[Rfam]
Notes:
Shown here is a 120-nucleotide sequence from Kosmotoga olearia, a member of the family "FMN riboswitch aptamer (RFN element)". The source organism's lineage runs through Bacteria, Thermotogota, Thermotogae, Kosmotogaceae and Kosmotoga olearia. For this family Rfam cites "FMN riboswitch aptamer symmetry facilitates conformational switching through mutually exclusive coaxial stacking configurations" (Wilt et al., J Struct Biol X, 2020). The family's consensus secondary structure is taken from published work.
Nucleotides: 120
Stems, first nucleotide, its partner, number of pairs: 003118008017029003031100002033089002035049004044087002052065003069085005091103003
Number, partner (000 for none) and nucleotide at each position: 001000a002000a003118a004117a005116u006115u007114c008113u009112c010111c011000g012000g013000g014000g015000c016000a017029g018028g019027g020000u021000g022000a023000a024000a025000u026000u027019c028018c029017c030000g031100a032099c033089c034088g035049g036048c037047g038046g039000u040000g041000a042000a043000a044087g045086c046038c047037c048036g049035c050000g051000a052065g053064c054063u055000c056000c057000u058000g059000a060000a061000g062000g063054a064053g065052u066000u067000g068000a069085u070084c071083c072082g073081g074000u075000g076000g077000a078000a079000u080000u081073c082072c083071g084070g085069a086045g087044c088034c089033g090000a091103c092102g093101g094000u095000g096000a097000a098000a099032g100031u101093c102092c103091g104000g105000a106000u107000g108000g109000g110000a111010g112009g113008a114007g115006a116005a117004u118003u119000g120000a